[Rfam]
RNA sequence: UCCGUGGUUACGCGGAAUCUGAAGGAAGCCCUAGGCAAACCCUUGGCCCGCGGUACACGAAUCACAUUUGAGGUUACGCCUUGAGGACGAGUUUGCAAAACAAGACGAAGUCCAAAAUAUCCCCAGAUGGAGGCGUAAUAAAUGUGGCGGGUAUGUGAGGGGAAAGUGGAUGAA
Dot-bracket structure: ((((((....)))))).............(.(..((...(((((((((((...........((((((.....(((.((((((..((((..((((........))))...))))................)))))).)))..)))))))))))...))))))....))..).)..
The family of this 174-nucleotide RNA from Bacillus sp. T33-2 is "Group II catalytic intron D1-D4-3". Lineage of the source: Bacteria > Bacillati > Caryophanales > Bacillaceae > Bacillus. Rfam describes the family as follows. Group II introns are found in rRNA, tRNA and mRNA of organelles in fungi, plants and protists, and also in mRNA in bacteria.